RNA sequence: AUGCCAGUUAAGUGAAUUCUUUGCCACAGUCUUAGAAUGAGAGAUAAGCUGUGCAAGGUUCGCUUAGGCUGGAAU
Numbered sequence: 001a002u003g004c005c006a007g008u009u010a011a012g013u014g015a016a017u018u019c020u021u022u023g024c025c026a027c028a029g030u031c032u033u034a035g036a037a038u039g040a041g042a043g044a045u046a047a048g049c050u051g052u053g054c055a056a057g058g059u060u061c062g063c064u065u066a067g068g069c070u071g072g073a074a075u
Base pairs, nucleotide, nucleotide: 004072005071006070009066010065011064012063013062014061015060016059017058019057020056021055023054024053027051028050029049
Dot-bracket structure: ...(((..(((((((((.(((.((..(((...................))).))))))))))))))...)))...